Rfam assigns this 138-nucleotide sequence from Paenibacillus monticola to the family "pan motif". A search with the family's covariance model found it, with a score of 38 bits. It is annotated as a cis-regulatory element.
[Rfam]
RNA sequence: GAGGCGGUAUCCAAAUGUUUGAGCUGCACUCUGGUUGGUGAAUGAUGCUAAUGAAUAGUAUUUUGGAAAGUACCUUCAUAACUGCGUUUGACGGUUACGUUGGAUUCUGCUCUGAGCCGUAAGGACCGAGACAGAAGG
Numbered sequence: 001g002a003g004g005c006g007g008u009a010u011c012c013a014a015a016u017g018u019u020u021g022a023g024c025u026g027c028a029c030u031c032u033g034g035u036u037g038g039u040g041a042a043u044g045a046u047g048c049u050a051a052u053g054a055a056u057a058g059u060a061u062u063u064u065g066g067a068a069a070g071u072a073c074c075u076u077c078a079u080a081a082c083u084g085c086g087u088u089u090g091a092c093g094g095u096u097a098c099g100u101u102g103g104a105u106u107c108u109g110c111u112c113u114g115a116g117c118c119g120u121a122a123g124g125a126c127c128g129a130g131a132c133a134g135a136a137g138g
Base pairs, nucleotide, nucleotide: 001031002030003029004027005026006025007024008023010022011021107134108133109132110130111129112128114126117124118123
Dot-bracket structure: ((((((((.((.........))))))).)))...........................................................................((((((.(..((....)).).))).)))....